[Rfam]
RNA sequence: UACUAAGAACGCACACGUCCUGUGUGCAACGUAGAAGUCACCACUUCCUGUGGA
Number, nucleotide and partner (000 for none) at each position: 001u033002a032003c031004u000005a000006a000007g000008a000009a000010c000011g000012c026013a025014c024015a023016c022017g000018u000019c000020c000021u000022g016023u015024g014025u013026g012027c000028a000029a000030c000031g003032u002033a001034g000035a000036a000037g000038u000039c000040a000041c053042c052043a051044c050045u000046u000047c000048c000049u000050g044051u043052g042053g041054a000
RNA: Bacillaceae-1 RNA